Background: Rfam assigns this 132-nucleotide RNA sequence from Salvelinus namaycush to the family "Small nucleolar RNA SNORA17". The match comes from Rfam's covariance-model search (65 bits). Rfam's curators write: snoRNA ACA 17 belongs to the H/ACA family of snoRNAs and is predicted to guide pseudouridylation of the 28S rRNA at positions U4659 and U4598. Rfam links the family to the GO terms nucleolus and RNA processing.
RNA sequence: CCUGCCCCUUGAGGCGUUGCAGUCCGACUGAAUGUGUCGAGCCUGUGUCAUAAGGGGCGGAGAGUGAAAGGGCUAUGUCUACGCCAAGGACCCAGAACGGUGGGUACUUGGAGUGAUCAUGGCUCUGACAGA
Numbered sequence: 001c002c003u004g005c006c007c008c009u010u011g012a013g014g015c016g017u018u019g020c021a022g023u024c025c026g027a028c029u030g031a032a033u034g035u036g037u038c039g040a041g042c043c044u045g046u047g048u049c050a051u052a053a054g055g056g057g058c059g060g061a062g063a064g065u066g067a068a069a070g071g072g073c074u075a076u077g078u079c080u081a082c083g084c085c086a087a088g089g090a091c092c093c094a095g096a097a098c099g100g101u102g103g104g105u106a107c108u109u110g111g112a113g114u115g116a117u118c119a120u121g122g123c124u125c126u127g128a129c130a131g132a
Stems, first nucleotide, its partner, number of pairs: 002060010013049003019046004024041001025039004069126008082115002085111001087109002090105004